[Rfam]
RNA sequence: AAAGUUAGCUGGACAGCCGCCGCCUUGUCAUGAGGGGGAGGAAAGUCCGGGCUCCAUAGGGCAGAGUGCCAGGUAACGCCUGGGCGGCGUGAGCCGACGGAAAGUGCAACAGAAAGUAUACCGCCUAAGCCCGCAAGGGCCGGUAAGGGUGAAAUGGUGCGGUAAGAGCGCACCGCGUGCUUGGUAACAGGUCACGGCGAUGGAAAACCCCACUCGGAGCAAGACCAAAUAGGGAUCCACUGGCGCGGCCCGCGCUGGAUCCGGGUAGGUCGCUUGAGCGUGCUGGUGACGGUACGCCUAGAGGAAUGGCUGUCCUCGACAGAACCCGGCUUAUAGGCUGACUUUCCAC
Number, nucleotide and partner (000 for none) at each position: 001a345002a344003a343004g342005u341006u340007a339008g338009c337010u336011g334012g314013a313014c312015a311016g310017c309018c308019g000020c038021c037022g000023c035024c034025u033026u032027g031028u000029c000030a000031u027032g026033a025034g024035g023036g000037g021038g020039a000040g000041g000042a000043a332044a331045g330046u000047c329048c328049g327050g326051g325052c219053u218054c217055c216056a000057u000058a000059g251060g250061g249062c248063a000064g215065a214066g213067u212068g211069c083070c082071a081072g080073g079074u000075a000076a000077c000078g000079c073080c072081u071082g070083g069084g098085c096086g095087g094088c093089g000090u000091g000092a000093g088094c087095c086096g085097a000098c084099g210100g209101a000102a000103a000104g208105u207106g000107c203108a000109a000110c000111a000112g000113a000114a000115a000116g000117u000118a000119u000120a000121c148122c147123g144124c143125c142126u000127a000128a000129g140130c139131c138132c137133g000134c000135a000136a000137g132138g131139g130140c129141c000142g125143g124144u123145a000146a000147g122148g121149g000150u000151g000152a000153a000154a000155u000156g174157g173158u172159g171160c170161g169162g000163u000164a000165a000166g000167a000168g000169c161170g160171c159172a158173c157174c156175g198176c196177g195178u194179g193180c000181u190182u189183g188184g000185u000186a000187a000188c183189a182190g181191g000192u000193c179194a178195c177196g176197g000198c175199g000200a000201u000202g000203g107204a000205a000206a000207a105208c104209c100210c099211c068212a067213c066214u065215c064216g055217g054218a053219g052220c000221a000222a000223g271224a270225c269226c268227a000228a000229a000230u000231a000232g000233g262234g261235a260236u259237c258238c257239a000240c000241u000242g256243g255244c254245g253246c252247g000248g062249c061250c060251c059252g246253c245254g244255c243256u242257g238258g237259a236260u235261c234262c233263g000264g000265g000266u000267a000268g226269g225270u224271c223272g000273c000274u000275u000276g000277a000278g297279c296280g295281u294282g293283c292284u291285g290286g000287u000288g000289a000290c285291g284292g283293u282294a281295c280296g279297c278298c000299u000300a000301g000302a000303g000304g000305a000306a000307u000308g018309g017310c016311u015312g014313u013314c012315c000316u000317c000318g000319a000320c000321a000322g000323a000324a000325c051326c050327c049328g048329g047330c045331u044332u043333a000334u011335a000336g010337g009338c008339u007340g006341a005342c004343u003344u002345u001346c000347c000348a000349c000